[Rfam]
RNA: Vertebrate telomerase RNA
Organism: Ornithorhynchus anatinus
RNA sequence: GGGGCGGAGGGGGGCCGCGCGGCCCGCCUCUCCUCUAACCCUAAUCCGCGCCCGGAGGCGGCCCCGCCGGGGGCCCCGCGCUGUUUUCCUGGCUGACUUUCAGCGCGGGGGGAGCGGCUGGGCCUCCCCCGCUCCAAAAAACGUCAGCCGGGGGCCGCCGCCUUCCUCCGGCCCGUCCGCCCGCCCGCCCGGGAGCUGCGGCGGCCCGGCGCGGGGCUCGGCAGGGGAGCGUCCGCCCCGCUCCGCUCCGCUCCGCUCCUCCCCCGGGGCCGCGGUCGUGCCGGGGGCGUCUCCCCCACUGCCGCCGCCAAGAGUUCGGCUCUGCCCGCCUCGGGGGCCGGCGCGGCGGGGGGCCCGGGCCCGGCCGCAGACACACUAACGUGAGCGGCGCCCGCCCUCGCCCGCGGCCUUCCCUCAGUCGUGGGACCGGCCGCGCCGGGCGCCGCUCAGACACCC
Numbered sequence: 001g002g003g004g005c006g007g008a009g010g011g012g013g014g015c016c017g018c019g020c021g022g023c024c025c026g027c028c029u030c031u032c033c034u035c036u037a038a039c040c041c042u043a044a045u046c047c048g049c050g051c052c053c054g055g056a057g058g059c060g061g062c063c064c065c066g067c068c069g070g071g072g073g074c075c076c077c078g079c080g081c082u083g084u085u086u087u088c089c090u091g092g093c094u095g096a097c098u099u100u101c102a103g104c105g106c107g108g109g110g111g112g113a114g115c116g117g118c119u120g121g122g123c124c125u126c127c128c129c130c131g132c133u134c135c136a137a138a139a140a141a142c143g144u145c146a147g148c149c150g151g152g153g154g155c156c157g158c159c160g161c162c163u164u165c166c167u168c169c170g171g172c173c174c175g176u177c178c179g180c181c182c183g184c185c186c187g188c189c190c191g192g193g194a195g196c197u198g199c200g201g202c203g204g205c206c207c208g209g210c211g212c213g214g215g216g217c218u219c220g221g222c223a224g225g226g227g228a229g230c231g232u233c234c235g236c237c238c239c240g241c242u243c244c245g246c247u248c249c250g251c252u253c254c255g256c257u258c259c260u261c262c263c264c265c266g267g268g269g270c271c272g273c274g275g276u277c278g279u280g281c282c283g284g285g286g287g288c289g290u291c292u293c294c295c296c297c298a299c300u301g302c303c304g305c306c307g308c309c310a311a312g313a314g315u316u317c318g319g320c321u322c323u324g325c326c327c328g329c330c331u332c333g334g335g336g337g338c339c340g341g342c343g344c345g346g347c348g349g350g351g352g353g354c355c356c357g358g359g360c361c362c363g364g365c366c367g368c369a370g371a372c373a374c375a376c377u378a379a380c381g382u383g384a385g386c387g388g389c390g391c392c393c394g395c396c397c398u399c400g401c402c403c404g405c406g407g408c409c410u411u412c413c414c415u416c417a418g419u420c421g422u423g424g425g426a427c428c429g430g431c432c433g434c435g436c437c438g439g440g441c442g443c444c445g446c447u448c449a450g451a452c453a454c455c456c
Base pairs, nucleotide, nucleotide: 005170006169007168008167009166010165011164012163013162014161015160017158018157021156022155023154024153025152064117065116066115067114075109076108077107078106079105080104081103082102083101092148093147094146095145096144097143098141099140100139196370197369198368199367200366201365235360236359237358238357240354241353242352243351250347251346252345254343255342256341258337259336260335261334262333272308273307274306275305277304278303280302281301284297285296286295311323312322313321314320383448384447385446386445388443389442390441391440392439393438394437404434405433406432407431408430411426412425413424414423